[Rfam]
A member of the RNA family "Bacterial small signal recognition particle RNA" from Mycoplasmopsis columboralis, 97 nucleotides long. The family's RNA type in Rfam is non-coding RNA gene. The family's consensus secondary structure is taken from published work. The organism belongs to Mycoplasmopsis, within Bacteria.
Nucleotides: 097
Stems, first nucleotide, its partner, number of pairs: 004093005009084006017075006025066002028063001034059004042051003
Number, partner (000 for none) and nucleotide at each position: 001000u002000a003000c004093u005092a006091a007090a008089g009084c010083c011082g012081u013080u014079a015000a016000a017075a018074c019073a020072a021071u022070a023000a024000c025066c026065c027000a028063c029000u030000a031000a032000c033000c034059u035058g036057g037056u038000c039000a040000g041000g042051a043050c044049a045000g046000a047000a048000a049044u050043g051042u052000a053000g054000c055000a056037g057036c058035c059034a060000u061000a062000u063028g064000a065026g066025g067000a068000a069000g070022u071021g072020u073019u074018g075017u076000g077000u078000u079014u080013a081012g082011c083010g084009g085000u086000c087000u088000u089008u090007u091006u092005u093004a094000u095000u096000g097000c